[Rfam]
RNA: c-di-AMP riboswitch aptamer (ydaO/yuaA leader)
Organism: Thermobaculum terrenum
RNA sequence: UAUAUAAUUUGGCCGAAUCCCUUGAAGGGAACGGGGGAACCAAAAGUAAUUGGGGUGAAGUCCGUCUGGACAGGGUAGCCUUUCGACCCUAACCCGUCAGCUAACCCCGUAGGCGUACGAAAGGAGGCAAU
Numbered sequence: 001u002a003u004a005u006a007a008u009u010u011g012g013c014c015g016a017a018u019c020c021c022u023u024g025a026a027g028g029g030a031a032c033g034g035g036g037g038a039a040c041c042a043a044a045a046g047u048a049a050u051u052g053g054g055g056u057g058a059a060g061u062c063c064g065u066c067u068g069g070a071c072a073g074g075g076u077a078g079c080c081u082u083u084c085g086a087c088c089c090u091a092a093c094c095c096g097u098c099a100g101c102u103a104a105c106c107c108c109g110u111a112g113g114c115g116u117a118c119g120a121a122a123g124g125a126g127g128c129a130a131u
Stems, first nucleotide, its partner, number of pairs: 012114003018030003031110006041052002053095003061070003073089004